Notes
Rfam assigns this 66-nucleotide sequence from Olea europaea to the family "Small nucleolar RNA U49". NCBI's taxonomy places the organism under Eukaryota, eudicotyledons, Gunneridae, Olea, Olea europaea. For this family Rfam cites "Multiple snoRNA gene clusters from Arabidopsis" (Brown et al., RNA, 2001).
[Rfam]
RNA sequence: CGCCGAUGAGGAAGAAUUCCCAAAGUAUAGGAAGUGCCGUAUGACACUUUAAACAGCAGCAGCUGC
Numbered sequence: 001c002g003c004c005g006a007u008g009a010g011g012a013a014g015a016a017u018u019c020c021c022a023a024a025g026u027a028u029a030g031g032a033a034g035u036g037c038c039g040u041a042u043g044a045c046a047c048u049u050u051a052a053a054c055a056g057c058a059g060c061a062g063c064u065g066c
Stems, first nucleotide, its partner, number of pairs: 014060001031050006
Dot-bracket structure: .............(................((((((........)))))).........)......